[Rfam]
RNA sequence: GCUCUCGCCAACGCUGCGUUUCUUUGCUCACAAACAGACACUGAGCCUCGCGCUCAGCUCGUCGCUAUAUGCAAAUGAGAAAUUCGGAGUAAUCUUCACCUUCACCCGCUAUCCGUCUUAGGGCGCUCUGGCAGCUACCCGUGAGGGUCUGGCGUGAAAUCACGUCUGCAUCGGGCAUCAGAAAUCUCAGGGCCAGCCGGCACAGACUCUUCGGGGUUUGUCGCUCGUACUGUACCCCUAUGGGAGCCUAUGCGAAGAUUGUGUGCGCGCGAAAGCGUGCGACACUUCAGUGCAAUACGCGGCGUACUAUACUCAUAGUAUCAUUCGAUUCCGAUUACUCUGGCGAGAGC
Numbered sequence: 001g002c003u004c005u006c007g008c009c010a011a012c013g014c015u016g017c018g019u020u021u022c023u024u025u026g027c028u029c030a031c032a033a034a035c036a037g038a039c040a041c042u043g044a045g046c047c048u049c050g051c052g053c054u055c056a057g058c059u060c061g062u063c064g065c066u067a068u069a070u071g072c073a074a075a076u077g078a079g080a081a082a083u084u085c086g087g088a089g090u091a092a093u094c095u096u097c098a099c100c101u102u103c104a105c106c107c108g109c110u111a112u113c114c115g116u117c118u119u120a121g122g123g124c125g126c127u128c129u130g131g132c133a134g135c136u137a138c139c140c141g142u143g144a145g146g147g148u149c150u151g152g153c154g155u156g157a158a159a160u161c162a163c164g165u166c167u168g169c170a171u172c173g174g175g176c177a178u179c180a181g182a183a184a185u186c187u188c189a190g191g192g193c194c195a196g197c198c199g200g201c202a203c204a205g206a207c208u209c210u211u212c213g214g215g216g217u218u219u220g221u222c223g224c225u226c227g228u229a230c231u232g233u234a235c236c237c238c239u240a241u242g243g244g245a246g247c248c249u250a251u252g253c254g255a256a257g258a259u260u261g262u263g264u265g266c267g268c269g270c271g272a273a274a275g276c277g278u279g280c281g282a283c284a285c286u287u288c289a290g291u292g293c294a295a296u297a298c299g300c301g302g303c304g305u306a307c308u309a310u311a312c313u314c315a316u317a318g319u320a321u322c323a324u325u326c327g328a329u330u331c332c333g334a335u336u337a338c339u340c341u342g343g344c345g346a347g348a349g350c
Stems, first nucleotide, its partner, number of pairs: 001350004008343003013303007023075004041057006085333005094257004137148004151166005168253004173248002189239003304321007
This 350-nucleotide RNA from Aplosporella prunicola belongs to the Rfam family "Nuclear RNase P". The family's RNA type in Rfam is ribozyme. The family's consensus secondary structure is taken from published work. NCBI's taxonomy places the organism under Eukaryota, Dikarya, Dothideomycetes, Aplosporella, Aplosporella prunicola.